[Rfam]
RNA sequence: AUGUCAGAGAAAGGAUUCUGCUGUCGGUCCCACUCCACGGUUUACAAAACGGGUGGUGCGCACAGAAUCCAGCCUCUGCUUGUG
Number, nucleotide and partner (000 for none) at each position: 001a083002u082003g081004u000005c078006a077007g076008a075009g074010a000011a000012a000013g070014g069015a068016u067017u066018c065019u064020g063021c000022u062023g061024u060025c000026g000027g057028u000029c000030c056031c055032a054033c053034u052035c051036c000037a000038c000039g000040g000041u000042u000043u000044a000045c000046a000047a000048a000049a000050c000051g035052g034053g033054u032055g031056g030057u027058g000059c000060g024061c023062a022063c020064a019065g018066a017067a016068u015069c014070c013071a000072g000073c000074c009075u008076c007077u006078g005079c000080u000081u003082g002083u001084g000